Shown here is a 113-nucleotide RNA from Streptomyces tateyamensis, a member of the family "Actinobacteria sRNA Ms_IGR-7". Rfam classes the family as a small RNA.

[Rfam]
RNA sequence: GAGAGGUGCCUUGGUGGUCGGGCGGACGGAAGCGUAGAGAACUCCCAUCCUCCCAGCUCAGCAGGCACCUCUUUGCGUCAUCCCCUCCCCACCUCGAUCACCGACCGGUGAAU
Numbered sequence: 001g002a003g004a005g006g007u008g009c010c011u012u013g014g015u016g017g018u019c020g021g022g023c024g025g026a027c028g029g030a031a032g033c034g035u036a037g038a039g040a041a042c043u044c045c046c047a048u049c050c051u052c053c054c055a056g057c058u059c060a061g062c063a064g065g066c067a068c069c070u071c072u073u074u075g076c077g078u079c080a081u082c083c084c085c086u087c088c089c090c091a092c093c094u095c096g097a098u099c100a101c102c103g104a105c106c107g108g109u110g111a112a113u
Base pairs, nucleotide, nucleotide: 002072003071004070005069006068007067008066009065010064011063015060016059017058019056020054021053022052024050025049026048029045031043032042100113104109

The base pairs follow the family's consensus structure.